[Rfam]
Nucleotides: 485
Base pairs, nucleotide, nucleotide: 001451002450004449005448011446012445013444014443015442016441017440019438020437021436036060037059038058039057040056045050061210062209064207065206066205067204068203069202070199071198072197073196074195076188077187078186079185081183085182086181087180089178090177091176098170099169100168101167104164105163107161108160109159110158111157112156113155114154117152119150120149122147123146124145125144126143128141129140130139131138211215223431224430225429226428227427228426229425230423231422234248235247236246251286252285253284254283255282256281257280258279262273263272264271265270290417291416292415294348295347296346299345300344301341302340303339304338306337309336310335311334317328318327319326320325349367350366351365352364353363354362368372388404389403390402391401392400464481465480466479467478468477
Number, partner (000 for none) and nucleotide at each position: 001451u002450a003000u004449g005448a006000a007000a008000a009000a010000u011446g012445c013444a014443g015442g016441u017440a018000a019438g020437g021436g022000a023000a024000g025000u026000c027000g028000g029000c030000a031000a032000a033000u034000u035000g036060g037059a038058c039057c040056c041000g042000u043000a044000a045050c046000u047000u048000u049000g050045g051000g052000a053000a054000a055000a056040g057039g058038g059037u060036u061210g062209g063000c064207u065206c066205u067204a068203g069202u070199g071198c072197u073196g074195c075000g076188u077187g078186g079185g080000a081183g082000u083000g084000g085182u086181u087180g088000u089178c090177g091176g092000a093000u094000g095000c096000u097000g098170g099169c100168g101167c102000u103000u104164u105163u106000a107161g108160c109159g110158u111157g112156g113155c114154g115000g116000a117152u118000u119150g120149g121000c122147g123146c124145g125144g126143u127000a128141c129140u130139c131138c132000u133000c134000u135000u136000u137000u138131g139130g140129g141128g142000c143126g144125c145124u146123g147122u148000u149120c150119c151000u152117g153000c154114u155113g156112c157111u158110a159109c160108g161107c162000c163105g164104a165000u166000u167101g168100u169099g170098c171000c172000a173000c174000g175000c176091c177090c178089g179000a180087c181086g182085a183081c184000g185079c186078c187077c188076a189000c190000a191000g192000c193000a194000u195074g196073c197072a198071g199070c200000a201000g202069a203068c204067u205066a206065g207064a208000a209062c210061u211215g212000c213000a214000a215211c216000g217000g218000g219000c220000a221000a222000a223431g224430g225429g226428a227427a228426u229425c230423c231422g232000a233000c234248u235247g236246u237000u238000u239000a240000a241000u242000u243000a244000a245000a246236a247235c248234a249000a250000a251286g252285c253284a254283u255282u256281g257280c258279g259000a260000g261000g262273g263272c264271c265270g266000u267000g268000g269000c270265c271264g272263g273262u274000g275000a276000u277000g278000a279258c280257g281256c282255a283254a284253u285252g286251u287000g288000a289000u290417u291416u292415c293000u294348g295347c296346u297000c298000a299345g300344u301341g302340c303339u304338c305000u306337g307000a308000a309336u310335g311334u312000c313000a314000a315000a316000g317328u318327g319326a320325a321000g322000a323000g324000a325320u326319u327318c328317a329000a330000u331000c332000a333000a334311g335310c336309g337306c338304g339303g340302g341301u342000a343000a344300a345299c346296a347295g348294c349367g350366g351365g352364a353363g354362u355000a356000a357000c358000u359000a360000u361000g362354a363353c364352u365351c366350u367349c368372u369000u370000a371000a372368g373000g374000u375000a376000g377000c378000c379000a380000a381000a382000u383000g384000c385000c386000u387000c388404g389403u390402c391401a392400u393000c394000u395000a396000a397000u398000u399000a400392g401391u402390g403389a404388c405000g406000c407000g408000c409000a410000u411000g412000a413000a414000u415292g416291g417290a418000u419000u420000a421000a422231c423230g424000a425229g426228a427227u428226u429225c430224c431223u432000a433000c434000u435000g436021u437020c438019c439000c440017u441016a442015u443014c444013u445012g446011c447000u448005u449004c450002u451001a452000g453000c454000g455000a456000a457000a458000c459000c460000a461000c462000a463000g464481c465480c466479g467478a468477g469000g470000g471000a472000a473000c474000g475000g476000g477468c478467u479466c480465g481464g482000c483000g484000a485000a